[Rfam]
RNA sequence: UAUCGGCGGCCGGGCCCCUCUGGCGGGACGCGACACGCGCCCGUGAUGUCGGAGCCGAUGC
Numbered sequence: 001u002a003u004c005g006g007c008g009g010c011c012g013g014g015c016c017c018c019u020c021u022g023g024c025g026g027g028a029c030g031c032g033a034c035a036c037g038c039g040c041c042c043g044u045g046a047u048g049u050c051g052g053a054g055c056c057g058a059u060g061c
Stems, first nucleotide, its partner, number of pairs: 006055002010052004023044005029039003

This 61-nucleotide sequence from Microvirga subterranea belongs to the Rfam family "terC RNA". It is annotated as a cis-regulatory element. The match comes from Rfam's covariance-model search (54 bits). Taxonomically the source falls in Microvirga (Bacteria, Pseudomonadati, Pseudomonadota, Alphaproteobacteria).